Overview: Rfam assigns this 116-nucleotide RNA from Alligator mississippiensis to the family "U5 spliceosomal RNA". The match comes from Rfam's covariance-model search (104 bits).

RNA sequence: UUACUCUGGUUUUUCUUCAACAUGUACAAAUCUUUCGCCUUUUACUAAAGAUUUCCGUGGAGAAGAGCAAUAACGAGUUUAUACUCAAUUUUUCGAGGCUCUGUUUUGGCAGAGCU
Number, nucleotide and partner (000 for none) at each position: 001u000002u000003a078004c077005u076006c075007u000008g000009g068010u067011u066012u065013u064014u063015c062016u061017u060018c059019a058020a000021c000022a000023u000024g000025u000026a000027c000028a054029a053030a052031u051032c050033u049034u048035u047036c000037g000038c000039c000040u000041u000042u000043u000044a000045c000046u000047a035048a034049a033050g032051a031052u030053u029054u028055c000056c000057g000058u019059g018060g017061a016062g015063a014064a013065g012066a011067g010068c009069a000070a000071u000072a000073a000074c000075g006076a005077g004078u003079u000080u000081a000082u000083a000084c000085u000086c000087a000088a000089u000090u000091u000092u000093u000094c000095g000096a116097g000098g115099c114100u113101c112102u111103g110104u000105u000106u000107u000108g000109g000110c103111a102112g101113a100114g099115c098116u096
Source information:
Rfam describes the family as follows. U5 RNA is a component of both types of known spliceosome. The precise function of this molecule is unknown, though it is known that the 5' loop is required for splice site selection and p220 binding, and that both the 3' stem-loop and the Sm site are important for Sm protein binding and cap methylation.